Background:
A member of the RNA family "Arthropod 7SK RNA" from Photinus pyralis, 265 nucleotides long. By type it is a non-coding RNA gene. It scores 126 bits against the family's covariance model. On this family, see Gruber et al., Mol Biol Evol 2008: "Arthropod 7SK RNA". The family is grouped with related families in Rfam's "7SK clan".

RNA sequence: GGAGGUGUGUGCUUGUGAUGGCACAACUGAACAUUGAUCGCUAAGUUUGCAUCUAGGCAGAUCUGCUCAGUAAGUGGCGUCACGUGGUCGAUCCUGUAGCCAGGAAUGUGUUAGCGAUGCCGCAAAGCAAUUUGUAGACGCACGUUAUACAUCCAGGCUCCUCGAACGUCCGCCAUUUCCAAAAUUUGGGGGGUUAUGGAUAGGUAAAUUUAGAACACCUCCAUAUAUCGGCACUGUGAUCGUCUGACAGUUUGCCAUUUUUUAA
Numbered sequence: 001g002g003a004g005g006u007g008u009g010u011g012c013u014u015g016u017g018a019u020g021g022c023a024c025a026a027c028u029g030a031a032c033a034u035u036g037a038u039c040g041c042u043a044a045g046u047u048u049g050c051a052u053c054u055a056g057g058c059a060g061a062u063c064u065g066c067u068c069a070g071u072a073a074g075u076g077g078c079g080u081c082a083c084g085u086g087g088u089c090g091a092u093c094c095u096g097u098a099g100c101c102a103g104g105a106a107u108g109u110g111u112u113a114g115c116g117a118u119g120c121c122g123c124a125a126a127g128c129a130a131u132u133u134g135u136a137g138a139c140g141c142a143c144g145u146u147a148u149a150c151a152u153c154c155a156g157g158c159u160c161c162u163c164g165a166a167c168g169u170c171c172g173c174c175a176u177u178u179c180c181a182a183a184a185u186u187u188g189g190g191g192g193g194u195u196a197u198g199g200a201u202a203g204g205u206a207a208a209u210u211u212a213g214a215a216c217a218c219c220u221c222c223a224u225a226u227a228u229c230g231g232c233a234c235u236g237u238g239a240u241c242g243u244c245u246g247a248c249a250g251u252u253u254g255c256c257a258u259u260u261u262u263u264a265a
Stems, first nucleotide, its partner, number of pairs: 001222008015083005027070003032065002036063004040058003230256003233251005